[Rfam]
RNA: Small nucleolar RNA snoR111
RNA sequence: UUAAUGAAUGGGAUGGUAUUUCAAUUCCGUCUCGUCGACGAGAACAAGAGGUAUAAUGAUGAUGGCGAGAUAUCGUUUCAGUCGUCAUUUUUCUACGUUGACGCUUCGAUUGUUGCUCGUCCACAU
Numbered sequence: 001u002u003a004a005u006g007a008a009u010g011g012g013a014u015g016g017u018a019u020u021u022c023a024a025u026u027c028c029g030u031c032u033c034g035u036c037g038a039c040g041a042g043a044a045c046a047a048g049a050g051g052u053a054u055a056a057u058g059a060u061g062a063u064g065g066c067g068a069g070a071u072a073u074c075g076u077u078u079c080a081g082u083c084g085u086c087a088u089u090u091u092u093c094u095a096c097g098u099u100g101a102c103g104c105u106u107c108g109a110u111u112g113u114u115g116c117u118c119g120u121c122c123a124c125a126u
Stems, first nucleotide, its partner, number of pairs: 002037001004035004009029006064122002066119004072110004081105001083103005089097001